[Rfam]
RNA sequence: GCCAAUAUGUUGCCUUUAUCUGCAUUUGCACCUGCACCUUUACUUGUCUCUCUCUCUCUCUCUUUCUCGUUCGCUGUGUAUAUUAACUUCUAAAACCAAACCAGCUUUAAAGGUUGCCAAAAGUUAUAUAUGGGGAGAGGAACAAAGCAACAGGUGCAGGUUCAGGUGCUGGUGCAGGUGAAUGCCAUCUUGGC
Dot-bracket structure: (((((.(((..((.((((((((((((.(((((((.((((......................................................................................................................)))).))))))).)))))))))))).))))).)))))
This 194-nucleotide sequence from Carya illinoinensis belongs to the Rfam family "MIR530 microRNA precursor family". Taxonomically the source falls in Carya (Eukaryota, Streptophytina, Spermatophyta, Mesangiospermae). Pairs were carried over by alignment from the consensus structure, which was predicted with WAR. A reference for the family is Lu et al. (2008), "Stress-responsive microRNAs in Populus", Plant J. Rfam links the family to the GO terms miRNA-mediated post-transcriptional gene silencing and RISC complex.